[Rfam]
RNA sequence: CAAGCCUUCGAAUAGCUGAAUGGUUAAUCUAGGAAUCAUUUGGUUCAGACAGAGGCUUAGAUUGAAACUGGGAUUACAUCCCUCGAACGAACCAGUUGGAUGGAUGAUGAGGGAUGUAUAAUUUUACCUAAAUCCUUCAAUUA
Numbered sequence: 001c002a003a004g005c006c007u008u009c010g011a012a013u014a015g016c017u018g019a020a021u022g023g024u025u026a027a028u029c030u031a032g033g034a035a036u037c038a039u040u041u042g043g044u045u046c047a048g049a050c051a052g053a054g055g056c057u058u059a060g061a062u063u064g065a066a067a068c069u070g071g072g073a074u075u076a077c078a079u080c081c082c083u084c085g086a087a088c089g090a091a092c093c094a095g096u097u098g099g100a101u102g103g104a105u106g107a108u109g110a111g112g113g114a115u116g117u118a119u120a121a122u123u124u125u126a127c128c129u130a131a132a133u134c135c136u137u138c139a140a141u142u143a
Stems, first nucleotide, its partner, number of pairs: 003057006014045008023036003070136006077116003082111003086108001090105001092103003
RNA: Small nucleolar RNA snoR138
Organism: Spinacia oleracea